[Rfam]
RNA sequence: ACACGAGAGAGGAGGUGGUCCGUACCUUGUUUAGCUAUCGGACACGUGAGGUGAUUGGCCGCUAGGCCGUCACAGCUGCAACGGCCGGCGAUCGGGAGAUCGUCCGCGUGCGACACACACCACGCGGGGACGGCCUGGCACUACCGGACAAUCACCCAAUCCCCGGGCUUCGCCGAUUACCUGUCCACCUCGGCACGCGCAGGUCACCGCCUGUGCAGGGCCCGGGGAUUGUCCAUU
Numbered sequence: 001a002c003a004c005g006a007g008a009g010a011g012g013a014g015g016u017g018g019u020c021c022g023u024a025c026c027u028u029g030u031u032u033a034g035c036u037a038u039c040g041g042a043c044a045c046g047u048g049a050g051g052u053g054a055u056u057g058g059c060c061g062c063u064a065g066g067c068c069g070u071c072a073c074a075g076c077u078g079c080a081a082c083g084g085c086c087g088g089c090g091a092u093c094g095g096g097a098g099a100u101c102g103u104c105c106g107c108g109u110g111c112g113a114c115a116c117a118c119a120c121c122a123c124g125c126g127g128g129g130a131c132g133g134c135c136u137g138g139c140a141c142u143a144c145c146g147g148a149c150a151a152u153c154a155c156c157c158a159a160u161c162c163c164c165g166g167g168c169u170u171c172g173c174c175g176a177u178u179a180c181c182u183g184u185c186c187a188c189c190u191c192g193g194c195a196c197g198c199g200c201a202g203g204u205c206a207c208c209g210c211c212u213g214u215g216c217a218g219g220g221c222c223c224g225g226g227g228a229u230u231g232u233c234c235a236u237u
Stems, first nucleotide, its partner, number of pairs: 014059001016057004061139006068132004073127001157231013
The family of this 237-nucleotide RNA sequence from Nakamurella aerolata is "Actinobacteria sRNA Ms_IGR-5". It scores 67 bits against the family's covariance model.